[Rfam]
RNA sequence: CCGUGCAGCCGGGGAGAUAGCGGUGCCCUGUACCUGCAAUCCGCUAUAGCAGGGGUGUUGUCUUGCCUAGGGUCUUUUGAUAAGGAGCUGCCCUUUAUAAGUGGCGUUGACAUCCGGGUCUUACGCAACAGGAACUUGUGAACCGUGUCAGGUCAGGAAUGAAGCAGCACUAAGCAAAACUUCUUGUGUGUCGUAAGGGCGCCUGGAUUGAGUUAACUGUAGAGGUAACGUCCAUUGAGAUUGAUUCGAAGCGGGGCGCACGG
Numbered sequence: 001c002c003g004u005g006c007a008g009c010c011g012g013g014g015a016g017a018u019a020g021c022g023g024u025g026c027c028c029u030g031u032a033c034c035u036g037c038a039a040u041c042c043g044c045u046a047u048a049g050c051a052g053g054g055g056u057g058u059u060g061u062c063u064u065g066c067c068u069a070g071g072g073u074c075u076u077u078u079g080a081u082a083a084g085g086a087g088c089u090g091c092c093c094u095u096u097a098u099a100a101g102u103g104g105c106g107u108u109g110a111c112a113u114c115c116g117g118g119u120c121u122u123a124c125g126c127a128a129c130a131g132g133a134a135c136u137u138g139u140g141a142a143c144c145g146u147g148u149c150a151g152g153u154c155a156g157g158a159a160u161g162a163a164g165c166a167g168c169a170c171u172a173a174g175c176a177a178a179a180c181u182u183c184u185u186g187u188g189u190g191u192c193g194u195a196a197g198g199g200c201g202c203c204u205g206g207a208u209u210g211a212g213u214u215a216a217c218u219g220u221a222g223a224g225g226u227a228a229c230g231u232c233c234a235u236u237g238a239g240a241u242u243g244a245u246u247c248g249a250a251g252c253g254g255g256g257c258g259c260a261c262g263g
Stems, first nucleotide, its partner, number of pairs: 001263006008056003011029004016024001018022001033053005062255005070247005077240002082235001084233002089227002093224006101217002103214003112208008120197006126188002129186005136177004145170004153162003

Record summary
Bacterial large signal recognition particle RNA: a 263-nucleotide RNA from Roseburia sp. CAG:309. It is annotated as a non-coding RNA gene. It scores 179 bits against the family's covariance model. The organism belongs to Roseburia, within Bacteria. Its Rfam clan is "SRP clan".